[Rfam]
Rfam assigns this 118-nucleotide RNA sequence from Anisakis simplex to the family "U5 spliceosomal RNA". Lineage of the source: Eukaryota > Rhabditida > Spirurina > Anisakidae > Anisakis simplex complex. The literature on the family includes a 1997 paper in Nucleic Acids Res by Zwieb, "The uRNA database".
RNA sequence: CAUCUCUUAUUCCUCUGCAUCAAACGAGAAAAUCUUUCGCCUUUUACUAAAGAUUUCCGUGCAGGGGAAUAAUUAUGAGUUAACUCUUAUUUUUGGAGUCCCGACUUAGGUCAGGGAC
Numbered sequence: 001c002a003u004c005u006c007u008u009a010u011u012c013c014u015c016u017g018c019a020u021c022a023a024a025c026g027a028g029a030a031a032a033u034c035u036u037u038c039g040c041c042u043u044u045u046a047c048u049a050a051a052g053a054u055u056u057c058c059g060u061g062c063a064g065g066g067g068a069a070u071a072a073u074u075a076u077g078a079g080u081u082a083a084c085u086c087u088u089a090u091u092u093u094u095g096g097a098g099u100c101c102c103g104a105c106u107u108a109g110g111u112c113a114g115g116g117a118c
Base pairs, nucleotide, nucleotide: 004079005078006077009070010069011068012067013066014065015064016063017062018061019060030056031055032054033053034052035051036050037049099117100116101115102114
The base pairs follow the family's consensus structure, which is taken from published work.
It is annotated as a spliceosomal small nuclear RNA.